About this RNA
Shown here is an 80-nucleotide RNA from Myotis lucifugus, a member of the family "Small nucleolar RNA U105B". The family has 13 seed sequences and 132 matches in Rfam 15.1. Rfam classes the family as a C/D-box small nucleolar RNA. For this family Rfam cites "snoSeeker: an advanced computational package for screening of guide and orphan snoRNA genes in the human genome" (Yang et al., Nucleic Acids Res, 2006). Its Rfam clan is "SNORD105 clan".
RNA sequence: CUGUGUGCGGCUGAUGACAGUGCUGCUACUGAGACUCCAUGAUUGCUCAGUCUCAAAGUAAACGCCCUGACGCACCAUGA
Numbered sequence: 001c002u003g004u005g006u007g008c009g010g011c012u013g014a015u016g017a018c019a020g021u022g023c024u025g026c027u028a029c030u031g032a033g034a035c036u037c038c039a040u041g042a043u044u045g046c047u048c049a050g051u052c053u054c055a056a057a058g059u060a061a062a063c064g065c066c067c068u069g070a071c072g073c074a075c076c077a078u079g080a
Stems, first nucleotide, its partner, number of pairs: 005075005010021004029050005